[Rfam]
RNA sequence: AAAGGGGCAAUAAUCAAUUUCUUGUUCUAUCAAGAAACCACUAUUGCCCCUUUACU
Number, nucleotide and partner (000 for none) at each position: 001a053002a052003a051004g050005g049006g048007g047008c046009a045010a044011u043012a042013a000014u040015c000016a000017a000018u000019u036020u035021c034022u033023u032024g031025u000026u000027c000028u000029a000030u000031c024032a023033a022034g021035a020036a019037a000038c000039c000040a014041c000042u012043a011044u010045u009046g008047c007048c006049c005050c004051u003052u002053u001054a000055c000056u000
Rfam assigns this 56-nucleotide sequence from Stegnosperma halimifolium to the family "Plastid-psbA-3 3UTR RNA".
Rfam's curators put it in the seed alignment.
The family's RNA type in Rfam is cis-regulatory element.
Plastid psbA-3 is a non-coding RNA (ncRNA) present in plastids. It was identified in inverted repeat sequences in the 3 prime untranslate region (3UTR) of photosystem II quinone-binding protein (psbA).
The family is grouped with related families in Rfam's "Plastid-psbA 3UTR RNA clan".